Shown here is a 75-nucleotide RNA from Nicotiana attenuata, a member of the family "MIR6146 microRNA precursor family".
Gene Ontology terms of the family: RISC complex and miRNA-mediated post-transcriptional gene silencing.
RNA sequence: CAACGGGCUUUGCCUAGUGAAAUACUUAUCGGACAUCAAGAGUCCAUAUAAGUGUUCAUCGGGCAAAGAUCGUUU
Numbered sequence: 001c002a003a004c005g006g007g008c009u010u011u012g013c014c015u016a017g018u019g020a021a022a023u024a025c026u027u028a029u030c031g032g033a034c035a036u037c038a039a040g041a042g043u044c045c046a047u048a049u050a051a052g053u054g055u056u057c058a059u060c061g062g063g064c065a066a067a068g069a070u071c072g073u074u075u
Stems, first nucleotide, its partner, number of pairs: 002074005008068008017059005023054007032044003
NCBI's taxonomy places the organism under Eukaryota, Spermatophyta, Mesangiospermae, Solanaceae, Nicotiana.